RNA sequence: GAUCGCAUUGAUGACUAUUGAAAAAUCAAGCUCAACAGACCGGAAAACAGGUUUAUCCUGUGUGUGUCGAUUAUACUCUACUGAGCGAUC
Numbered sequence: 001g002a003u004c005g006c007a008u009u010g011a012u013g014a015c016u017a018u019u020g021a022a023a024a025a026u027c028a029a030g031c032u033c034a035a036c037a038g039a040c041c042g043g044a045a046a047a048c049a050g051g052u053u054u055a056u057c058c059u060g061u062g063u064g065u066g067u068c069g070a071u072u073a074u075a076c077u078c079u080a081c082u083g084a085g086c087g088a089u090c
Stems, first nucleotide, its partner, number of pairs: 001090006